[Rfam]
Small nucleolar RNA SNORD60: an 83-nucleotide RNA sequence from Chrysemys picta. The organism belongs to Chrysemys picta, within Eukaryota. Gene Ontology terms of the family: RNA processing and nucleolus.

RNA sequence: AGCCUGUGAUGAGCUUUCAAUUUCUGACACCUCGUAUGAGUAUUGCCCAAGCAGUACUUGAUUACGCUUCAUGCCUGAGGCUG
Numbered sequence: 001a002g003c004c005u006g007u008g009a010u011g012a013g014c015u016u017u018c019a020a021u022u023u024c025u026g027a028c029a030c031c032u033c034g035u036a037u038g039a040g041u042a043u044u045g046c047c048c049a050a051g052c053a054g055u056a057c058u059u060g061a062u063u064a065c066g067c068u069u070c071a072u073g074c075c076u077g078a079g080g081c082u083g
Stems, first nucleotide, its partner, number of pairs: 001082004042055005
Pairs were carried over by alignment from the consensus structure, which was predicted with PFOLD.
Rfam classes the family as a C/D-box small nucleolar RNA.
On this family, see Kiss-Laszlo et al., Cell 1996: "Site-specific ribose methylation of preribosomal RNA: a novel function for small nucleolar RNAs".